Shown here is a 96-nucleotide sequence from Brachypodium distachyon, a member of the family "small nucleolar RNA snoR126".
Rfam 15.1 lists 423 matches to the family in 200 species.
The organism belongs to Brachypodium, within Eukaryota.

RNA sequence: UGGCUGUGAUGACAAAAUAACUUCCAUUUCUCGGUGCUGAUACUUGAUCUACUCAAGGACCCAAAAUUUGAUGAGCUUUGUGCGUGUCUGAGCCGA
Number, nucleotide and partner (000 for none) at each position: 001u095002g094003g093004c092005u000006g000007u000008g000009a000010u000011g000012a000013c000014a000015a000016a000017a000018u000019a000020a000021c000022u000023u000024c000025c000026a000027u000028u000029u000030c000031u000032c000033g000034g000035u000036g000037c000038u000039g000040a000041u000042a000043c000044u000045u000046g000047a000048u000049c000050u000051a000052c000053u000054c000055a000056a000057g000058g000059a000060c000061c000062c000063a000064a000065a000066a000067u000068u000069u000070g000071a000072u000073g000074a000075g000076c000077u000078u000079u000080g000081u000082g000083c000084g000085u000086g000087u000088c000089u000090g000091a000092g004093c003094c002095g001096a000
For this family Rfam cites "Mining small RNA sequencing data: a new approach to identify small nucleolar RNAs in Arabidopsis" (Chen and Wu, Nucleic Acids Res, 2009). By type it is a C/D-box small nucleolar RNA. The base pairs follow the family's consensus structure, which was predicted with RNAalifold.